[Rfam]
RNA sequence: CUUUAGGGGAAUGUUGUCUGGCUCAAAGCUCUCUUUGCUUUCAUUUGAAGAUGAUUGAUUUUAUAUAUAUACAUGUAUAUAUCUAUCAAUCUCUUCUUGCAUGCAUGCAUGCUUAUAUAAUAUGCAUGAGUGUUCUUGGACCAGGCUUCAUUCCUCCCAAC
Numbered sequence: 001c002u003u004u005a006g007g008g009g010a011a012u013g014u015u016g017u018c019u020g021g022c023u024c025a026a027a028g029c030u031c032u033c034u035u036u037g038c039u040u041u042c043a044u045u046u047g048a049a050g051a052u053g054a055u056u057g058a059u060u061u062u063a064u065a066u067a068u069a070u071a072c073a074u075g076u077a078u079a080u081a082u083c084u085a086u087c088a089a090u091c092u093c094u095u096c097u098u099g100c101a102u103g104c105a106u107g108c109a110u111g112c113u114u115a116u117a118u119a120a121u122a123u124g125c126a127u128g129a130g131u132g133u134u135c136u137u138g139g140a141c142c143a144g145g146c147u148u149c150a151u152u153c154c155u156c157c158c159a160a161c
Stems, first nucleotide, its partner, number of pairs: 002160002006156008016146006024138003

Shown here is a 161-nucleotide RNA from Dioscorea zingiberensis, a member of the family "mir-166 microRNA precursor family". Rfam links the family to the GO terms miRNA-mediated post-transcriptional gene silencing and RISC complex. A search with the family's covariance model found it, with a score of 65 bits. Pairs were carried over by alignment from the consensus structure, which was predicted with PFOLD. Rfam describes the family as follows. This family represents the plant microRNA (miRNA) precursor mir-166. Lineage of the source: Eukaryota > Embryophyta > Spermatophyta > Magnoliopsida > Dioscorea.